[Rfam]
Annotation
The record is a 249-nucleotide RNA from Prolemur simus, which matches "bip internal ribosome entry site (IRES)" in Rfam. Rfam's curators write: This family represents the bip internal ribosome entry site (IRES). BiP protein expression has been found to be significantly enhanced by the heat shock response due to IRES-dependent translation. It is thought that this translational mechanism is essential for the survival of cells under stress. Gene Ontology term of the family: ribosome binding. Rfam 15.1 lists 234 matches to the family in 131 species.
RNA sequence: CGCCGGCCAAGACAGCGAAGAGCGGACUGACUAAGGUGUUUGGCGAGGGGAAGGGGUAAACGCCGCGGCCUGCCUUUCGGAACUGCCCCGCGCCUUGUUCGUGGCUCCGGGCCCCUGCCUCCCUCAGACCGGUAAUCUCGCUACGCUGCCGUGCUGCGGCCUGCGGCAGGAUUGCCUGCGACGUCCUGCCUGCCUGGGGACCCAUUGGCCGGCAAGAUGAAACUCUCCCUGGUGGCUGCGAUGCUGCUG
Numbered sequence: 001c002g003c004c005g006g007c008c009a010a011g012a013c014a015g016c017g018a019a020g021a022g023c024g025g026a027c028u029g030a031c032u033a034a035g036g037u038g039u040u041u042g043g044c045g046a047g048g049g050g051a052a053g054g055g056g057u058a059a060a061c062g063c064c065g066c067g068g069c070c071u072g073c074c075u076u077u078c079g080g081a082a083c084u085g086c087c088c089c090g091c092g093c094c095u096u097g098u099u100c101g102u103g104g105c106u107c108c109g110g111g112c113c114c115c116u117g118c119c120u121c122c123c124u125c126a127g128a129c130c131g132g133u134a135a136u137c138u139c140g141c142u143a144c145g146c147u148g149c150c151g152u153g154c155u156g157c158g159g160c161c162u163g164c165g166g167c168a169g170g171a172u173u174g175c176c177u178g179c180g181a182c183g184u185c186c187u188g189c190c191u192g193c194c195u196g197g198g199g200a201c202c203c204a205u206u207g208g209c210c211g212g213c214a215a216g217a218u219g220a221a222a223c224u225c226u227c228c229c230u231g232g233u234g235g236c237u238g239c240g241a242u243g244c245u246g247c248u249g
Stems, first nucleotide, its partner, number of pairs: 004238006015154003020149001031110002035106001062105007157169001159167003